[Rfam]
RNA sequence: CUAAGACCUGCUUCAAGUAAUCCAGGAUAGGCUGUGUUAAUUUAAAAUGGCCUAUUCUUGAUGACUUGUUUCAGGAAAUAG
Numbered sequence: 001c002u003a004a005g006a007c008c009u010g011c012u013u014c015a016a017g018u019a020a021u022c023c024a025g026g027a028u029a030g031g032c033u034g035u036g037u038u039a040a041u042u043u044a045a046a047a048u049g050g051c052c053u054a055u056u057c058u059u060g061a062u063g064a065c066u067u068g069u070u071u072c073a074g075g076a077a078a079u080a081g
Stems, first nucleotide, its partner, number of pairs: 002080002007075004014068005020062003024058010
This 81-nucleotide RNA from Chiloscyllium punctatum belongs to the Rfam family "mir-26 microRNA precursor family". The literature on the family includes a 2001 paper in Science by Lagos-Quintana et al., "Identification of novel genes coding for small expressed RNAs". A search with the family's covariance model found it, with a score of 77 bits. Rfam links the family to the GO terms miRNA-mediated post-transcriptional gene silencing and RISC complex. NCBI's taxonomy places the organism under Eukaryota, Deuterostomia, Craniata, Selachii, Chiloscyllium.